[Rfam]
RNA sequence: GAUACGUUUCGGCAAACUUACUGAAAAGUAAGGACGCAAAGUCAUGGGCCUAACGCGCGCGCGCAACGGCUGCCAGACCGCUUGC
Number, nucleotide and partner (000 for none) at each position: 001g000002a000003u000004a000005c000006g000007u000008u000009u000010c000011g000012g037013c036014a000015a000016a000017c032018u031019u030020a029021c028022u027023g000024a000025a000026a000027a022028g021029u020030a019031a018032g017033g000034a000035c000036g013037c012038a000039a000040a000041g078042u077043c076044a000045u075046g074047g073048g070049c069050c068051u000052a000053a000054c000055g064056c063057g062058c000059g000060c000061g000062c057063g056064c055065a000066a000067c000068g050069g049070c048071u000072g000073c047074c046075a045076g043077a042078c041079c000080g000081c000082u000083u000084g000085c000

Rfam assigns this 85-nucleotide sequence from Paenibacillus methanolicus to the family "c-di-GMP-I riboswitch aptamer". It scores 63 bits against the family's covariance model. Taxonomically the source falls in Paenibacillus (Bacteria, Bacillati, Bacilli, Paenibacillaceae).